[Rfam]
RNA sequence: AAAAUCUUAAUAGCAUUCACUCAUAUAAAAGCGAGAAUAAGGCUCGCAAGUUUCUACCGGUUUGCCGUAAACAAACUGACUAUGAGAGGCAAUGAUAUAGAA
Numbered sequence: 001a002a003a004a005u006c007u008u009a010a011u012a013g014c015a016u017u018c019a020c021u022c023a024u025a026u027a028a029a030a031g032c033g034a035g036a037a038u039a040a041g042g043c044u045c046g047c048a049a050g051u052u053u054c055u056a057c058c059g060g061u062u063u064g065c066c067g068u069a070a071a072c073a074a075a076c077u078g079a080c081u082a083u084g085a086g087a088g089g090c091a092a093u094g095a096u097a098u099a100g101a102a
Stems, first nucleotide, its partner, number of pairs: 018088001020086006031047005058078007
Rfam assigns this 102-nucleotide RNA from Viridibacillus arenosi to the family "Purine riboswitch aptamer". The family's consensus secondary structure is taken from published work.